[Rfam]
RNA sequence: AGGGAUGACCAACUGUCCUGGUUUGCCUGGGACUGAGGGGUUACUGAGGACACGUGAAGUCCCUGGGCAAACUGGAGUGGUUGGUUCAUUCUAGCUUUU
Numbered sequence: 001a002g003g004g005a006u007g008a009c010c011a012a013c014u015g016u017c018c019u020g021g022u023u024u025g026c027c028u029g030g031g032a033c034u035g036a037g038g039g040g041u042u043a044c045u046g047a048g049g050a051c052a053c054g055u056g057a058a059g060u061c062c063c064u065g066g067g068c069a070a071a072c073u074g075g076a077g078u079g080g081u082u083g084g085u086u087c088a089u090u091c092u093a094g095c096u097u098u099u
Stems, first nucleotide, its partner, number of pairs: 001092004007086009019074010029063005034057001036055001038053001040051003
Shown here is a 99-nucleotide sequence from Bos taurus, a member of the family "mir-584 microRNA precursor family". The source organism's lineage runs through Eukaryota, Eumetazoa, Dipnotetrapodomorpha, Laurasiatheria and Bos. For this family Rfam cites "Patterns of known and novel small RNAs in human cervical cancer" (Lui et al., Cancer Res, 2007). Pairs were carried over by alignment from the consensus structure, which was predicted with RNAalifold.